Description:
A member of the RNA family "Small nucleolar RNA snoR2/U65" from Macleaya cordata, 152 nucleotides long. Its family is annotated with RNA processing and nucleolus in the Gene Ontology. The source organism's lineage runs through Eukaryota, Streptophytina, Euphyllophyta, Spermatophyta and Macleaya.

[Rfam]
RNA sequence: GGUCCGAUGCCACGUUGACGGUAGUCAAAAUAUGUCAUUGACCGACAAUGCUAUGAUUGGACCUAUAAAAAUUCCAUAUUUCGCAUACUGAUAGGAACCUGGGAUUGAUUUUAAACCAUUCAUCCACAGAGCCGAUUUUUGCGAUUACAUUU
Numbered sequence: 001g002g003u004c005c006g007a008u009g010c011c012a013c014g015u016u017g018a019c020g021g022u023a024g025u026c027a028a029a030a031u032a033u034g035u036c037a038u039u040g041a042c043c044g045a046c047a048a049u050g051c052u053a054u055g056a057u058u059g060g061a062c063c064u065a066u067a068a069a070a071a072u073u074c075c076a077u078a079u080u081u082c083g084c085a086u087a088c089u090g091a092u093a094g095g096a097a098c099c100u101g102g103g104a105u106u107g108a109u110u111u112u113a114a115a116c117c118a119u120u121c122a123u124c125c126a127c128a129g130a131g132c133c134g135a136u137u138u139u140u141g142c143g144a145u146u147a148c149a150u151u152u
Base pairs, nucleotide, nucleotide: 002062003061004060005059006058007057008056009054013050014049015048016047017046020043021042022041024036026034081144082143083142084141085140094133095132099129100128101127102125103124104123105122